[Rfam]
RNA sequence: AGGGCAUCAAUGAGGAGGAAUCAGAAGUCGUCAUCCUUGCACUUUGAUUACCCGUGAAGAGAAUUUGGGGACUUAUUUCUGAGAUGCUC
Numbered sequence: 001a002g003g004g005c006a007u008c009a010a011u012g013a014g015g016a017g018g019a020a021u022c023a024g025a026a027g028u029c030g031u032c033a034u035c036c037u038u039g040c041a042c043u044u045u046g047a048u049u050a051c052c053c054g055u056g057a058a059g060a061g062a063a064u065u066u067g068g069g070g071a072c073u074u075a076u077u078u079c080u081g082a083g084a085u086g087c088u089c
Base pairs, nucleotide, nucleotide: 002089003088004087005086006085007084008083
RNA: Small nucleolar RNA snoR26